A member of the RNA family "FMN riboswitch aptamer (RFN element)" from Olsenella sp. An188, 148 nucleotides long. The organism belongs to Olsenella, within Bacteria. The match comes from Rfam's covariance-model search (102 bits).
RNA sequence: UGUCAGUUUCAGGGCGGGGUGAAAGUCCCCACUGGCGGUGACGGGAGGCGCGCGGCGCCGGGCCCGAAGUCCGCGACCCGCUAAAAAGGCGGCUGACCCGGUGAGACUCCGGGACCAACGGUUACAGUCCGGAUGGAAGAAACGGAGG
Numbered sequence: 001u002g003u004c005a006g007u008u009u010c011a012g013g014g015c016g017g018g019g020u021g022a023a024a025g026u027c028c029c030c031a032c033u034g035g036c037g038g039u040g041a042c043g044g045g046a047g048g049c050g051c052g053c054g055g056c057g058c059c060g061g062g063c064c065c066g067a068a069g070u071c072c073g074c075g076a077c078c079c080g081c082u083a084a085a086a087a088g089g090c091g092g093c094u095g096a097c098c099c100g101g102u103g104a105g106a107c108u109c110c111g112g113g114a115c116c117a118a119c120g121g122u123u124a125c126a127g128u129c130c131g132g133a134u135g136g137a138a139g140a141a142a143c144g145g146a147g148g
Stems, first nucleotide, its partner, number of pairs: 003146002006143005017029003031128002033117002035074004069115002078092002097113005119131003